[Rfam]
RNA sequence: UUGAACGAUGUCGGAGAGAACGUAUAAUUACGUCGCCGAAGGAGCAAGCCUUUUUAGGUGAAUCUCUCAGGCAAAAGGACGAUAUCGUGACG
Numbered sequence: 001u002u003g004a005a006c007g008a009u010g011u012c013g014g015a016g017a018g019a020a021c022g023u024a025u026a027a028u029u030a031c032g033u034c035g036c037c038g039a040a041g042g043a044g045c046a047a048g049c050c051u052u053u054u055u056a057g058g059u060g061a062a063u064c065u066c067u068c069a070g071g072c073a074a075a076a077g078g079a080c081g082a083u084a085u086c087g088u089g090a091c092g
Base pairs, nucleotide, nucleotide: 006087007086008085009084010083011082012081013080020033021032022031023030035072036071037070038068039067042066043065044064048059049058

This 92-nucleotide sequence from Nosocomiicoccus massiliensis belongs to the Rfam family "Glycine riboswitch aptamer". About the family: This family represents the bacterial glycine riboswitch. Glycine riboswitches usually consist of two metabolite-binding aptamers domains with similar structures in tandem. The aptamers cooperatively bind glycine to regulate the expression of downstream genes. Lineage of the source: Bacteria > Bacillota > Bacilli > Caryophanales > Nosocomiicoccus.